The family of this 86-nucleotide RNA sequence from Panicum virgatum is "Small nucleolar RNA Z102/R77".
The family's consensus secondary structure was predicted with PFOLD.
A search with the family's covariance model found it, with a score of 81 bits.
RNA sequence: AGAUGGUGUGAUGAUCAAAUUUUUUCCCUAUUGGUUUUAUUGGCCACCAUGAUGGUUCAAACUGUAUUAGCUCUAUCUGAUCAUUU
Numbered sequence: 001a002g003a004u005g006g007u008g009u010g011a012u013g014a015u016c017a018a019a020u021u022u023u024u025u026c027c028c029u030a031u032u033g034g035u036u037u038u039a040u041u042g043g044c045c046a047c048c049a050u051g052a053u054g055g056u057u058c059a060a061a062c063u064g065u066a067u068u069a070g071c072u073c074u075a076u077c078u079g080a081u082c083a084u085u086u
Stems, first nucleotide, its partner, number of pairs: 002085004038059001042057004

Its Rfam clan is "SNORD44 clan". The family's RNA type in Rfam is C/D-box small nucleolar RNA. A reference for the family is Chen et al. (2003), "The high diversity of snoRNAs in plants: identification and comparative study of 120 snoRNA genes from Oryza sativa", Nucleic Acids Res. Gene Ontology terms of the family: RNA processing and nucleolus. The family has 9 seed sequences and 1,346 matches in Rfam 15.1.